[Rfam]
RNA: skipping-rope RNA
RNA sequence: ACUCUUUGAGGUGGUAAAUUUCGUGUCGACCACACGCCGCCGGUAGGACAGGGGCAACCCGAGAGAUGCAGGAGCAGGCACGCCUGCCAAAGAGU
Numbered sequence: 001a002c003u004c005u006u007u008g009a010g011g012u013g014g015u016a017a018a019u020u021u022c023g024u025g026u027c028g029a030c031c032a033c034a035c036g037c038c039g040c041c042g043g044u045a046g047g048a049c050a051g052g053g054g055c056a057a058c059c060c061g062a063g064a065g066a067u068g069c070a071g072g073a074g075c076a077g078g079c080a081c082g083c084c085u086g087c088c089a090a091a092g093a094g095u
Stems, first nucleotide, its partner, number of pairs: 001095008011033005023081005035063001036055003068087005